[Rfam]
RNA sequence: AGGUGUGAAUGAUGAUACCACAAGUAAAAUACAGUUAUCCCUGUCUGAUUCCUUCAAAAGGGUGCUGAGAAUACUUUAAUCACACAU
Numbered sequence: 001a002g003g004u005g006u007g008a009a010u011g012a013u014g015a016u017a018c019c020a021c022a023a024g025u026a027a028a029a030u031a032c033a034g035u036u037a038u039c040c041c042u043g044u045c046u047g048a049u050u051c052c053u054u055c056a057a058a059a060g061g062g063u064g065c066u067g068a069g070a071a072u073a074c075u076u077u078a079a080u081c082a083c084a085c086a087u
Stems, first nucleotide, its partner, number of pairs: 003087005
A member of the RNA family "Small nucleolar RNA R38" from Panicum virgatum, 87 nucleotides long. Pairs were carried over by alignment from the consensus structure, which was predicted with PFOLD. Rfam's curators write: snoR38 is a C/D box small nucleolar RNA conserved across yeast, human, Arabidopsis and rice. It is encoded in the intron of elongation factor-1 gamma in both pombe and cerevisiae. snoR38 guides the methylation of 2'-O-ribose sites in 28S rRNA. Lineage of the source: Eukaryota > Viridiplantae > Liliopsida > Petrosaviidae > Panicum sect. Hiantes. It is annotated as a C/D-box small nucleolar RNA.